RNA sequence: AUAAAAAAAACCUGUAGUAAAUAACUACAGGCUGCCUUAUUUAGCCAAUUUUCAUUGGCUAUAGGCUAUGGGAGAGGAGAAACCGGAGGAAGAACUUAUGGGGAAAAGUAAGUCUUCUCCGCGG
Numbered sequence: 001a002u003a004a005a006a007a008a009a010a011c012c013u014g015u016a017g018u019a020a021a022u023a024a025c026u027a028c029a030g031g032c033u034g035c036c037u038u039a040u041u042u043a044g045c046c047a048a049u050u051u052u053c054a055u056u057g058g059c060u061a062u063a064g065g066c067u068a069u070g071g072g073a074g075a076g077g078a079g080a081a082a083c084c085g086g087a088g089g090a091a092g093a094a095c096u097u098a099u100g101g102g103g104a105a106a107a108g109u110a111a112g113u114c115u116u117c118u119c120c121g122c123g124g
Base pairs, nucleotide, nucleotide: 011031012030013029014028015027016026017025018024035071036070038068043060044059045058046057047056048055084121085120086119087118089117090116091115092114094113095112096111097110098109